[Rfam]
RNA: mir-210 microRNA precursor family
RNA sequence: UCUAAAAGCAGGUAAGCCACUGACUAACGCACAUUGUGUCAGUUUCCAGUUCCACUGUGCGUGUGACAGCGGCUAACCUGGUUUUGGACAUGCCUCUC
Numbered sequence: 001u002c003u004a005a006a007a008g009c010a011g012g013u014a015a016g017c018c019a020c021u022g023a024c025u026a027a028c029g030c031a032c033a034u035u036g037u038g039u040c041a042g043u044u045u046c047c048a049g050u051u052c053c054a055c056u057g058u059g060c061g062u063g064u065g066a067c068a069g070c071g072g073c074u075a076a077c078c079u080g081g082u083u084u085u086g087g088a089c090a091u092g093c094c095u096c097u098c
Stems, first nucleotide, its partner, number of pairs: 005084003009080004015074004020069003024065001025063002028061006035054002